[Rfam]
RNA sequence: AGCAGUUCUUGGGUGAUGCACCCUGGAACUAGAGAGGAAGGAACCUAAUUCCAAGGUGCAUCACCCAAGAACCACC
Dot-bracket structure: .(..(((((((((((((.((((..((((.(((............))).))))..)))).)))))))))))))..).
Numbered sequence: 001a002g003c004a005g006u007u008c009u010u011g012g013g014u015g016a017u018g019c020a021c022c023c024u025g026g027a028a029c030u031a032g033a034g035a036g037g038a039a040g041g042a043a044c045c046u047a048a049u050u051c052c053a054a055g056g057u058g059c060a061u062c063a064c065c066c067a068a069g070a071a072c073c074a075c076c
Stems, first nucleotide, its partner, number of pairs: 002075001005072013019058004025052004030047003